[Rfam]
RNA: Bacillaceae-1 RNA
Organism: Lentibacillus cibarius
Nucleotides: 066
Stems, first nucleotide, its partner, number of pairs: 012048006025039005053065004
Number, partner (000 for none) and nucleotide at each position: 001000g002000g003000a004000a005000a006000a007000g008000g009000a010000a011000g012048g013047c014046a015045g016044g017043c018000u019000a020000a021000g022000u023000u024000c025039g026038c027037g028036a029035c030000g031000u032000c033000c034000u035029g036028u037027c038026g039025c040000a041000a042000c043017g044016c045015c046014u047013g048012c049000a050000c051000u052000a053065g054064c055063a056062c057000g058000u059000c060000c061000u062056g063055u064054g065053c066000g